This 155-nucleotide RNA from Gordonia aichiensis belongs to the Rfam family "FMN riboswitch aptamer (RFN element)". Taxonomically the source falls in Gordonia aichiensis (Bacteria, Bacillati, Actinomycetota, Gordoniaceae). The RFN element is a highly conserved domain that is found frequently in the 5'-untranslated regions of prokaryotic mRNAs that encode for flavin mononucleotide (FMN) biosynthesis and transport proteins.

[Rfam]
RNA sequence: ACACGUUCUCGGGGCGGGGUGCAAGUCCCCACCGGCGGUGAGUGGUCGCGAUCGGAUCGCGGCGACAAGCCCGCGAGCGCCCGGCCAGGUCGGGGUCAGCAGAUCCGGUGUGAUUCCGGAGCCGACGGUCACAGUCCGGAUGUGAGAGAACAAGA
Numbered sequence: 001a002c003a004c005g006u007u008c009u010c011g012g013g014g015c016g017g018g019g020u021g022c023a024a025g026u027c028c029c030c031a032c033c034g035g036c037g038g039u040g041a042g043u044g045g046u047c048g049c050g051a052u053c054g055g056a057u058c059g060c061g062g063c064g065a066c067a068a069g070c071c072c073g074c075g076a077g078c079g080c081c082c083g084g085c086c087a088g089g090u091c092g093g094g095g096u097c098a099g100c101a102g103a104u105c106c107g108g109u110g111u112g113a114u115u116c117c118g119g120a121g122c123c124g125a126c127g128g129u130c131a132c133a134g135u136c137c138g139g140a141u142g143u144g145a146g147a148g149a150a151c152a153a154g155a
Stems, first nucleotide, its partner, number of pairs: 005151006017029003031135002033124002035074004069122002077100002104120005126138003